[Rfam]
RNA sequence: ACCGAUAUGAUGAGAUAUCCGGAUGUAAAUUCACAGACCUGUUCUGAAAGCGCAAGCUGUGUGGAUAUUUCCGUUGCCUUCCUUCUGAUCCCACGU
Numbered sequence: 001a002c003c004g005a006u007a008u009g010a011u012g013a014g015a016u017a018u019c020c021g022g023a024u025g026u027a028a029a030u031u032c033a034c035a036g037a038c039c040u041g042u043u044c045u046g047a048a049a050g051c052g053c054a055a056g057c058u059g060u061g062u063g064g065a066u067a068u069u070u071c072c073g074u075u076g077c078c079u080u081c082c083u084u085c086u087g088a089u090c091c092c093a094c095g096u
Stems, first nucleotide, its partner, number of pairs: 003095002020073004
RNA: Small nucleolar RNA Z13/snr52
Organism: Cladophialophora yegresii